[Rfam]
RNA sequence: GGCGGCGUGCCUAAUACAUGCAAGUCGAGCGAUCUGGAGGUUGGAGAUUAGAGGUUAGAAGUUAGACGAAACCAAUCGGCGAAGCCGAUUGGAUGAAUCUGAUUUCCAACUUCCAAUCUCCAACUUCCAGGGAGCGGCGGACGGGUGAGUAACACGUGGGCAACCUGCCCGCAAGACCGGGAUAACUCCGGGAAACCGGGGCUAAUACCGGAUGAUGCCUCUUCCUGCAUGGGAGGAUGCUGAAAGGCGGCCUUUGGCUGUCACUUGCGGAUGGGCCCGCGGCGCAUUAGCUGGUUGGUGAGGUAACGGCUCACCAAGGCGACGAUGCGUAGCCGACCUGAGAGGGUGACCGGCCACACUGGGACUGAGACACGGCCCAGACUCCUACGGGAGGCAGCAGUAGGGAAUUUUCCGCAAUGGGCGCAAGCCUGACGGAGCAACGCCGCGUGAGUGAGGACGGCUUUCGGGUUGUAAAACUCUGUUCUUCGGGAAGAACGGUCGAAGGGUGAACAAUCCUUUGGCGUGACGGUACCGGAGGAGAAAGCCCCGGCUAACUACGUGCCAGCAGCCGCGGUAAUACGUAGGGGGCA
Numbered sequence: 001g002g003c004g005g006c007g008u009g010c011c012u013a014a015u016a017c018a019u020g021c022a023a024g025u026c027g028a029g030c031g032a033u034c035u036g037g038a039g040g041u042u043g044g045a046g047a048u049u050a051g052a053g054g055u056u057a058g059a060a061g062u063u064a065g066a067c068g069a070a071a072c073c074a075a076u077c078g079g080c081g082a083a084g085c086c087g088a089u090u091g092g093a094u095g096a097a098u099c100u101g102a103u104u105u106c107c108a109a110c111u112u113c114c115a116a117u118c119u120c121c122a123a124c125u126u127c128c129a130g131g132g133a134g135c136g137g138c139g140g141a142c143g144g145g146u147g148a149g150u151a152a153c154a155c156g157u158g159g160g161c162a163a164c165c166u167g168c169c170c171g172c173a174a175g176a177c178c179g180g181g182a183u184a185a186c187u188c189c190g191g192g193a194a195a196c197c198g199g200g201g202c203u204a205a206u207a208c209c210g211g212a213u214g215a216u217g218c219c220u221c222u223u224c225c226u227g228c229a230u231g232g233g234a235g236g237a238u239g240c241u242g243a244a245a246g247g248c249g250g251c252c253u254u255u256g257g258c259u260g261u262c263a264c265u266u267g268c269g270g271a272u273g274g275g276c277c278c279g280c281g282g283c284g285c286a287u288u289a290g291c292u293g294g295u296u297g298g299u300g301a302g303g304u305a306a307c308g309g310c311u312c313a314c315c316a317a318g319g320c321g322a323c324g325a326u327g328c329g330u331a332g333c334c335g336a337c338c339u340g341a342g343a344g345g346g347u348g349a350c351c352g353g354c355c356a357c358a359c360u361g362g363g364a365c366u367g368a369g370a371c372a373c374g375g376c377c378c379a380g381a382c383u384c385c386u387a388c389g390g391g392a393g394g395c396a397g398c399a400g401u402a403g404g405g406a407a408u409u410u411u412c413c414g415c416a417a418u419g420g421g422c423g424c425a426a427g428c429c430u431g432a433c434g435g436a437g438c439a440a441c442g443c444c445g446c447g448u449g450a451g452u453g454a455g456g457a458c459g460g461c462u463u464u465c466g467g468g469u470u471g472u473a474a475a476a477c478u479c480u481g482u483u484c485u486u487c488g489g490g491a492a493g494a495a496c497g498g499u500c501g502a503a504g505g506g507u508g509a510a511c512a513a514u515c516c517u518u519u520g521g522c523g524u525g526a527c528g529g530u531a532c533c534g535g536a537g538g539a540g541a542a543a544g545c546c547c548c549g550g551c552u553a554a555c556u557a558c559g560u561g562c563c564a565g566c567a568g569c570c571g572c573g574g575u576a577a578u579a580c581g582u583a584g585g586g587g588g589c590a
Base pairs, nucleotide, nucleotide: 002446003445004444005443006442007441008439009438010404015402016401017400019399020398021397024138025137026136029135030134033131034130036128037127038126039125040124041123042122043121044120045119046118047117048116049115145357146356147355155281156280157279158278159277160276161275164274165273169270170269171268172267173266174265175264177211178210179209180208186201187200188199189198190197191196217240218239220237221236222235223234224233225232226231246262247261248260249259250258251257252256283329284328285327290320291319292318295317296316297315298314299313300312301311302310332354333353334352335351336347337346338345339344359380360379361378362377363376382393383392384391385390410436412435413434414433418431419430420429421428422427449479450478451477452476459470460469461468462467483541484537485536486535487534488533489532493527499521500520501519502518503517504516505515544589545588546587547586548585555584556583557582558581559580565572566571
Dot-bracket structure: .(((((((((....(((.(((..(((..((..((.((((((((((((((.................................................................)))))))))))))).))..)))))......(((.......(((((((..((...(((((((.((((.....((((((....))))))......)))).....((.(((((((....))))))).)).....(((((((...))))))).)))))))..))))))))).(((....(((..((((((((.......)))))))))))......)))..((((((((....))))...))))))).(((((............))))).((((....))))...)))))).).....(.(((...(((((....))))).)))).)).))))))..((((......((((....)))).....))))...(((((((...(.....(((((((.........))))))).....)....))))))...)..(((((......(((((.....((....)).......)))))))))).
The record is a 590-nucleotide part of an RNA from Kroppenstedtia eburnea, which matches "Bacterial small subunit ribosomal RNA" in Rfam. The match comes from Rfam's covariance-model search (1588 bits). For this family Rfam cites "Crystal structure of the ribosome at 5.5 A resolution" (Yusupov et al., Science, 2001). NCBI's taxonomy places the organism under Bacteria, Bacilli, Caryophanales, Thermoactinomycetaceae, Kroppenstedtia. The family has 99 seed sequences and 42,628 matches in Rfam 15.1.